A member of the RNA family "Lysine riboswitch aptamer" from Paenibacillus rhizosphaerae, 207 nucleotides long. Riboswitches are metabolite binding domains within certain messenger RNAs that serve as precision sensors for their corresponding targets. Allosteric rearrangement of mRNA structure is mediated by ligand binding, and this results in modulation of gene expression. This family includes riboswitches that sense lysine in a number of genes involved in lysine metabolism, including lysC. The organism belongs to Paenibacillus, within Bacteria.

RNA sequence: AGGUGAGGUAGAGGUUGCGGAAGCGAUGAGUAGCUGUUCCGAGGCGUAAGAGCCGCCGGUGACGACAGCGAAGGGCGCCUUCCGCCGAAGUGUGCGAACCCGCUCUACGGUUGGCAUGCUGGGUCUGUUCUCCGAAAGGGACAGAACUGUCGCGGUGUUCCUUCCUCCUGCAGGAAGAUGAAGACGCCGUGAUGAGCUAUCUUUCAU
Number, nucleotide and partner (000 for none) at each position: 001a000002g000003g000004u000005g000006a202007g201008g200009u199010a198011g197012a000013g000014g000015u000016u000017g085018c084019g083020g082021a081022a080023g078024c077025g076026a000027u000028g000029a000030g000031u000032a000033g069034c068035u067036g066037u065038u064039c000040c000041g000042a000043g000044g000045c000046g000047u000048a000049a000050g000051a000052g000053c000054c000055g000056c000057c000058g000059g000060u000061g000062a000063c000064g038065a037066c036067a035068g034069c033070g000071a000072a000073g000074g000075g000076c025077g024078c023079c000080u022081u021082c020083c019084g018085c017086c000087g000088a000089a120090g119091u118092g117093u116094g115095c114096g000097a112098a111099c110100c109101c000102g000103c000104u000105c000106u000107a000108c000109g100110g099111u098112u097113g000114g095115c094116a093117u092118g091119c090120u089121g148122g147123g000124u145125c144126u143127g142128u141129u140130c139131u138132c000133c000134g000135a000136a000137a000138g131139g130140g129141a128142c127143a126144g125145a124146a000147c122148u121149g000150u192151c191152g190153c189154g188155g187156u186157g185158u184159u183160c000161c000162u000163u000164c000165c000166u000167c000168c000169u000170g000171c000172a000173g000174g000175a000176a000177g000178a000179u000180g000181a000182a000183g159184a158185c157186g156187c155188c154189g153190u152191g151192a150193u000194g000195a000196g000197c011198u010199a009200u008201c007202u006203u000204u000205c000206a000207u000
A search with the family's covariance model found it, with a score of 109 bits.